[Rfam]
RNA sequence: AGCACUGUACGGUAUCUGCAGCCAGUUGCUUCAUCAGCUGGUUAGUUCAUAAGUCAGUGCUAGACCAACUCAACAUCUGGCAUCGUUGGUCUCCAUGCUGCCUGUGCUUGGAGUCCUGGUAUAUCUGUUGAAACACUC
Numbered sequence: 001a002g003c004a005c006u007g008u009a010c011g012g013u014a015u016c017u018g019c020a021g022c023c024a025g026u027u028g029c030u031u032c033a034u035c036a037g038c039u040g041g042u043u044a045g046u047u048c049a050u051a052a053g054u055c056a057g058u059g060c061u062a063g064a065c066c067a068a069c070u071c072a073a074c075a076u077c078u079g080g081c082a083u084c085g086u087u088g089g090u091c092u093c094c095a096u097g098c099u100g101c102c103u104g105u106g107c108u109u110g111g112a113g114u115c116c117u118g119g120u121a122u123a124u125c126u127g128u129u130g131a132a133a134c135a136c137u138c
Stems, first nucleotide, its partner, number of pairs: 002060006014054002017051001018046002020043009064126001068122001070119003079108005

A member of the RNA family "Small nucleolar RNA SNORA8" from Dicentrarchus labrax, 138 nucleotides long. About the family: ACA8 is a member of the H/ACA class of snoRNA that guide the sites of modification of uridines to pseudouridines. The family's RNA type in Rfam is H/ACA-box small nucleolar RNA. Pairs were carried over by alignment from the consensus structure, which was predicted with RNAfold. Its family is annotated with RNA processing and nucleolus in the Gene Ontology.